[Rfam]
RNA: Plant signal recognition particle RNA
RNA sequence: GCCGAGCUCAGCAACGUGAGCUUGUAACCCAAGUGGGGGCUUUAAAGUGGUUGAAUGUUGGGCCUAACUAAUGUGGCUGGGCUUUGAAAUGCUGAUUCUGACCCGCCCGUUCCAAGCUGGGAGUUGGGCCAUGGGGCUUGUGCGAAGGCAUGGGCUUCAUGGCCCGUAGAGAGGUCGGUACUGCGUCAGGCUGGUUUCACAGAGCAGCGAUUACUUCCCCCUCUUGGCAGUGGAAGGAUAACGGGCCGGUGUGUUUCGAGUCUAUUAAAGCCAUAUCUGUCAGCCCUUUAAGACAAUCAUUUUU
Numbered sequence: 001g002c003c004g005a006g007c008u009c010a011g012c013a014a015c016g017u018g019a020g021c022u023u024g025u026a027a028c029c030c031a032a033g034u035g036g037g038g039g040c041u042u043u044a045a046a047g048u049g050g051u052u053g054a055a056u057g058u059u060g061g062g063c064c065u066a067a068c069u070a071a072u073g074u075g076g077c078u079g080g081g082c083u084u085u086g087a088a089a090u091g092c093u094g095a096u097u098c099u100g101a102c103c104c105g106c107c108c109g110u111u112c113c114a115a116g117c118u119g120g121g122a123g124u125u126g127g128g129c130c131a132u133g134g135g136g137c138u139u140g141u142g143c144g145a146a147g148g149c150a151u152g153g154g155c156u157u158c159a160u161g162g163c164c165c166g167u168a169g170a171g172a173g174g175u176c177g178g179u180a181c182u183g184c185g186u187c188a189g190g191c192u193g194g195u196u197u198c199a200c201a202g203a204g205c206a207g208c209g210a211u212u213a214c215u216u217c218c219c220c221c222u223c224u225u226g227g228c229a230g231u232g233g234a235a236g237g238a239u240a241a242c243g244g245g246c247c248g249g250u251g252u253g254u255u256u257c258g259a260g261u262c263u264a265u266u267a268a269a270g271c272c273a274u275a276u277c278u279g280u281c282a283g284c285c286c287u288u289u290a291a292g293a294c295a296a297u298c299a300u301u302u303u304u
Base pairs, nucleotide, nucleotide: 001040002039003038004023005022006021007020008019009018010017028037029036030035044303045302046301047300048299049298050297051296052295053294056291060287061286062284063283066280071276072275073274074273075272076271077270078269079263080262081261082260083259084258086256087255089254090253091252093251094250098249099248100247102245103244104243105242107237108236110235111234112233113232114231116228117227118226119225120224121223122222123221126165127164128163129162130161131160132159133158134157135156136155137154138153139152140151141150142149143148173218174217177214184209185208186207191202192201193200